[Rfam]
RNA sequence: CAAUCGGUGACGUUUGGGAGAGAAGAAGCAAUAGCGAAAUCGUGGCUCGACGAACAGAAAUCCGAUACUAAGGCACCCCAAGUUGGAUGAGACUGCCUAAGAAGUCAAAGUCCUAAAGGCAACCGUAACCUUGGUGUGUAAAUCGGGCGAGUAAACGAUGAAAGAUGUAUGGU
Numbered sequence: 001c002a003a004u005c006g007g008u009g010a011c012g013u014u015u016g017g018g019a020g021a022g023a024a025g026a027a028g029c030a031a032u033a034g035c036g037a038a039a040u041c042g043u044g045g046c047u048c049g050a051c052g053a054a055c056a057g058a059a060a061u062c063c064g065a066u067a068c069u070a071a072g073g074c075a076c077c078c079c080a081a082g083u084u085g086g087a088u089g090a091g092a093c094u095g096c097c098u099a100a101g102a103a104g105u106c107a108a109a110g111u112c113c114u115a116a117a118g119g120c121a122a123c124c125g126u127a128a129c130c131u132u133g134g135u136g137u138g139u140a141a142a143u144c145g146g147g148c149g150a151g152u153a154a155a156c157g158a159u160g161a162a163a164g165a166u167g168u169a170u171g172g173u
Base pairs, nucleotide, nucleotide: 001016002015003014005012006011028173029172031170032169035164039159040158041157042156043155045152046151047150048149049148061147062146063145064144065143066142073139074138075137078134079133080132081131082130085113086112087111088110091106092105093104094103
Group II catalytic intron D1-D4-3: a 173-nucleotide RNA sequence from Bacteroides nordii. It scores 117 bits against the family's covariance model. The source organism's lineage runs through Bacteria, Pseudomonadati, Bacteroidales, Bacteroidaceae and Bacteroides nordii. The base pairs follow the family's consensus structure. Rfam links the family to the GO term Group II intron splicing.